This 81-nucleotide RNA sequence from Crocodylus porosus belongs to the Rfam family "Mammalian CPEB3 ribozyme". Lineage of the source: Eukaryota > Opisthokonta > Gnathostomata > Sauropsida > Crocodylus. Rfam 15.1 lists 5,706 matches to the family in 197 species. The base pairs follow the family's consensus structure, which is taken from published work.
RNA sequence: AGAGGUUACAAGUGCAAGGCCAUAGCAGAAGUGCUCACAGCAUAGCCCUUGUAAGAUACCGCUGAAUCUGUGAAUUCUGCU
Numbered sequence: 001a002g003a004g005g006u007u008a009c010a011a012g013u014g015c016a017a018g019g020c021c022a023u024a025g026c027a028g029a030a031g032u033g034c035u036c037a038c039a040g041c042a043u044a045g046c047c048c049u050u051g052u053a054a055g056a057u058a059c060c061g062c063u064g065a066a067u068c069u070g071u072g073a074a075u076u077c078u079g080c081u
Base pairs, nucleotide, nucleotide: 016049018047019046020045024081025080026079027078028077029076030075031043032042033041054069055068056067057066059064